Overview: Shown here is a 70-nucleotide RNA sequence from Danionella cerebrum, a member of the family "mir-10 microRNA precursor family". On this family, see Lee and Ambros, Science 2001: "An extensive class of small RNAs in Caenorhabditis elegans". The match comes from Rfam's covariance-model search (77 bits).
RNA sequence: UGACACAAACCCGUAGAUCCGAACUUGUGGUAAAAAUGUGCACAAGCUCGUUUCUAUAGGUCUGUGUCUC
Numbered sequence: 001u002g003a004c005a006c007a008a009a010c011c012c013g014u015a016g017a018u019c020c021g022a023a024c025u026u027g028u029g030g031u032a033a034a035a036a037u038g039u040g041c042a043c044a045a046g047c048u049c050g051u052u053u054c055u056a057u058a059g060g061u062c063u064g065u066g067u068c069u070c
Base pairs, nucleotide, nucleotide: 002068003067004066005065006064007063010060011059015055016054017053020050021049022048024046025045026044027043028042029041